Rfam assigns this 108-nucleotide RNA from Streptococcus phage Javan258 to the family "Streptococcus sRNA SpF41". The family's RNA type in Rfam is small RNA. For this family Rfam cites "Control of virulence by small RNAs in Streptococcus pneumoniae" (Mann et al., PLoS Pathog, 2012).
RNA sequence: GAAACGCAAGGAGUAGCAUAGGGGGAGUGCGCCUUGAUUGAGGAUGCUCAGGUUCAAAUCCUGACGCUUGCGUUACAUCUUUGCCCCUUAAUUGGGGCUUUUUUUGUG
Numbered sequence: 001g002a003a004a005c006g007c008a009a010g011g012a013g014u015a016g017c018a019u020a021g022g023g024g025g026a027g028u029g030c031g032c033c034u035u036g037a038u039u040g041a042g043g044a045u046g047c048u049c050a051g052g053u054u055c056a057a058a059u060c061c062u063g064a065c066g067c068u069u070g071c072g073u074u075a076c077a078u079c080u081u082u083g084c085c086c087c088u089u090a091a092u093u094g095g096g097g098c099u100u101u102u103u104u105u106g107u108g
Stems, first nucleotide, its partner, number of pairs: 003074007013065001032043004048064005083098005